The record is a 432-nucleotide RNA from Desulfofundulus salinus, which matches "Bacterial RNase P class A" in Rfam. The match comes from Rfam's covariance-model search (313 bits).

RNA sequence: UGAGUAAACCGGGUGGUCGCGGGUGCCCGCGGGGGCACCUGAGGAAAGUCCGAGCUCCACAGGGCAGGGUGCUGGGUAACACCCAGUGGGGGCGACCCCAAGGAAAGUGCCACAGAAAUGCAGACCGCCCAGCACUCAGCCCAGCAGUUUAAAAGGAUACUUCAUGACAGGCAUGGACGGAUAACUGCGAGGUAAAACACCUUCAACUGUUGGGCUGAGUGCUGGGCAAGGGUGGAACGGUGCGGUAAGAGCGCACCAGCGGCCACGGCGACGGGCCGGCUAGGUAAACCCCACCUGGAGCAAGACCGAAUAGGGGGACAAUGGGGUGGCCCGCUCCGUCCCCGGGUAAAGGUCGCUAGAGGCGUCAGGCAACUGGCGUCCCAGAUAGAUGAUCACCCAAGACAGAACUCGGCUUACAGGUUUGCUCACAGC
Numbered sequence: 001u002g003a004g005u006a007a008a009c010c011g012g013g014u015g016g017u018c019g020c021g022g023g024u025g026c027c028c029g030c031g032g033g034g035g036c037a038c039c040u041g042a043g044g045a046a047a048g049u050c051c052g053a054g055c056u057c058c059a060c061a062g063g064g065c066a067g068g069g070u071g072c073u074g075g076g077u078a079a080c081a082c083c084c085a086g087u088g089g090g091g092g093c094g095a096c097c098c099c100a101a102g103g104a105a106a107g108u109g110c111c112a113c114a115g116a117a118a119u120g121c122a123g124a125c126c127g128c129c130c131a132g133c134a135c136u137c138a139g140c141c142c143a144g145c146a147g148u149u150u151a152a153a154a155g156g157a158u159a160c161u162u163c164a165u166g167a168c169a170g171g172c173a174u175g176g177a178c179g180g181a182u183a184a185c186u187g188c189g190a191g192g193u194a195a196a197a198c199a200c201c202u203u204c205a206a207c208u209g210u211u212g213g214g215c216u217g218a219g220u221g222c223u224g225g226g227c228a229a230g231g232g233u234g235g236a237a238c239g240g241u242g243c244g245g246u247a248a249g250a251g252c253g254c255a256c257c258a259g260c261g262g263c264c265a266c267g268g269c270g271a272c273g274g275g276c277c278g279g280c281u282a283g284g285u286a287a288a289c290c291c292c293a294c295c296u297g298g299a300g301c302a303a304g305a306c307c308g309a310a311u312a313g314g315g316g317g318a319c320a321a322u323g324g325g326g327u328g329g330c331c332c333g334c335u336c337c338g339u340c341c342c343c344g345g346g347u348a349a350a351g352g353u354c355g356c357u358a359g360a361g362g363c364g365u366c367a368g369g370c371a372a373c374u375g376g377c378g379u380c381c382c383a384g385a386u387a388g389a390u391g392a393u394c395a396c397c398c399a400a401g402a403c404a405g406a407a408c409u410c411g412g413c414u415u416a417c418a419g420g421u422u423u424g425c426u427c428a429c430a431g432c
Base pairs, nucleotide, nucleotide: 001428002427003426004425005424006423007422008421009420010419011417012397013396014395015394016393017392018391020041021040022039023038024037025036026035027034028033046415047414048413050412051411052410053409054408055300056299057298058297062332063331064330065329067296068295069294070293071292072086073085074084075083076082087101088099089098090097091096102291103290107289108288109285110284111283125231126230127227128226129225130224131223132222133221134220135219136218137217138216139215140214141213142212143211144210145209146208147207148206149205239257240256241255242254243253244252259280260278261277262276263275264274266273267272304354305353306352307351314343315342316341317340318339319338323337324336325335326334327333361380362379363378364377365376366375367374368373